[Rfam]
Overview
Shown here is a 69-nucleotide RNA from Zingiber officinale, a member of the family "Plastid-clpP 5UTR RNA". Pairs were carried over by alignment from the consensus structure, which was predicted with LocARNA. The source organism's lineage runs through Eukaryota, Streptophytina, Magnoliopsida, Mesangiospermae and Zingiber. About the family: Plastid clpP is a non-coding RNA (ncRNA) recognised in plastids. It was found in the prime untranslated region (5UTR) of a protease complex subunit (clpP) in plastids, suggesting a posible cis-regulatory function. A search with the family's covariance model found it, with a score of 83 bits. It is annotated as a cis-regulatory element.
RNA sequence: AAUUUUGUUAGUAAGAACAAAGAGAAGCGGAUCUAUUCUAUACCCGAUAAGUACCAAUACGUAAUGGAA
Number, nucleotide and partner (000 for none) at each position: 001a000002a000003u022004u021005u000006u019007g018008u017009u016010a000011g000012u000013a000014a000015g000016a009017a008018c007019a006020a000021a004022g003023a000024g000025a000026a000027g000028c000029g000030g000031a000032u000033c000034u000035a000036u000037u000038c000039u000040a000041u000042a000043c000044c067045c066046g000047a000048u000049a000050a000051g060052u059053a058054c000055c000056a000057a000058u053059a052060c051061g000062u000063a000064a000065u000066g045067g044068a000069a000